[Rfam]
RNA sequence: GAGCCAGGCCGGGCCCCUCUGGCGGUUCGCAAGAACCGUGAUGUCGGACUGGAGGA
Number, nucleotide and partner (000 for none) at each position: 001g000002a000003g000004c000005c000006a050007g049008g000009c047010c046011g045012g044013g000014c000015c000016c000017c000018u000019c000020u000021g000022g039023c038024g037025g036026u035027u034028c033029g000030c000031a000032a000033g028034a027035a026036c025037c024038g023039u022040g000041a000042u000043g000044u012045c011046g010047g009048a000049c007050u006051g000052g000053a000054g000055g000056a000
The record is a 56-nucleotide RNA sequence, which matches "terC RNA" in Rfam. The family's RNA type in Rfam is cis-regulatory element.